The family of this 401-nucleotide RNA from Actinocrinis puniceicyclus is "Bacterial RNase P class A".
Ribonuclease P (RNase P) is a ubiquitous endoribonuclease, found in archaea, bacteria and eukarya as well as chloroplasts and mitochondria.
The family's RNA type in Rfam is ribozyme.
[Rfam]
RNA sequence: CGAGCCGGUCGGGCGACCGCGUGCGCGGGUGCGAGCCCGCGCCCGAGGAAAGUCCGGGCUCCACAGGGCAGGGUGGUUGGCAACACCAACCCGGGGUGACCCGCGGGAAAGUGCCACAGAAAACAGACCGCCGUGGACCGCGAGGCCCGCGGCAAGGGUGAAACGGUGGGGUAAGAGCCCACCAGCGCCCGGGGUGACCCGGGCGGCUCGGUAAACCCCACCCGGAGCAAGGUCGAGAAGGGUCGCCCACGGGCGGCCCGCGCGAGUGUCUGAGGGCGGCCCGCCCGAGCUCGCGGGUAGACCGCUUGAGGCGUGCGGCGACGCACGCCCUAGAUGGAUGGUCGCCUCGCACGCUGUCCGCAGCGCGCGAACAGAACCCGGCUUAUAGGCCGGCUCGCCGU
Numbered sequence: 001c002g003a004g005c006c007g008g009u010c011g012g013g014c015g016a017c018c019g020c021g022u023g024c025g026c027g028g029g030u031g032c033g034a035g036c037c038c039g040c041g042c043c044c045g046a047g048g049a050a051a052g053u054c055c056g057g058g059c060u061c062c063a064c065a066g067g068g069c070a071g072g073g074u075g076g077u078u079g080g081c082a083a084c085a086c087c088a089a090c091c092c093g094g095g096g097u098g099a100c101c102c103g104c105g106g107g108a109a110a111g112u113g114c115c116a117c118a119g120a121a122a123a124c125a126g127a128c129c130g131c132c133g134u135g136g137a138c139c140g141c142g143a144g145g146c147c148c149g150c151g152g153c154a155a156g157g158g159u160g161a162a163a164c165g166g167u168g169g170g171g172u173a174a175g176a177g178c179c180c181a182c183c184a185g186c187g188c189c190c191g192g193g194g195u196g197a198c199c200c201g202g203g204c205g206g207c208u209c210g211g212u213a214a215a216c217c218c219c220a221c222c223c224g225g226a227g228c229a230a231g232g233u234c235g236a237g238a239a240g241g242g243u244c245g246c247c248c249a250c251g252g253g254c255g256g257c258c259c260g261c262g263c264g265a266g267u268g269u270c271u272g273a274g275g276g277c278g279g280c281c282c283g284c285c286c287g288a289g290c291u292c293g294c295g296g297g298u299a300g301a302c303c304g305c306u307u308g309a310g311g312c313g314u315g316c317g318g319c320g321a322c323g324c325a326c327g328c329c330c331u332a333g334a335u336g337g338a339u340g341g342u343c344g345c346c347u348c349g350c351a352c353g354c355u356g357u358c359c360g361c362a363g364c365g366c367g368c369g370a371a372c373a374g375a376a377c378c379c380g381g382c383u384u385a386u387a388g389g390c391c392g393g394c395u396c397g398c399c400g401u
Stems, first nucleotide, its partner, number of pairs: 001397010011386001012346007020045002023042006050384003054381005059227004066282004071223005076090005091105001092103004106218002111216002113212003128157002130153007138145001165183006185207001186205008231303004262294006274286004310329008